[Rfam]
RNA sequence: GCUUAGCCCCGAUAGAAGUGGAAAUCCUUUUGUUUUUUUCUUUAAAAAACAAAAGAUUGGAACGGAUAGCGGGAAUGGCU
Numbered sequence: 001g002c003u004u005a006g007c008c009c010c011g012a013u014a015g016a017a018g019u020g021g022a023a024a025u026c027c028u029u030u031u032g033u034u035u036u037u038u039u040c041u042u043u044a045a046a047a048a049a050c051a052a053a054a055g056a057u058u059g060g061a062a063c064g065g066a067u068a069g070c071g072g073g074a075a076u077g078g079c080u
Stems, first nucleotide, its partner, number of pairs: 009072003013068002018063002023058004029053010
RNA: Flavo-1 RNA
Organism: Flavobacterium psychrophilum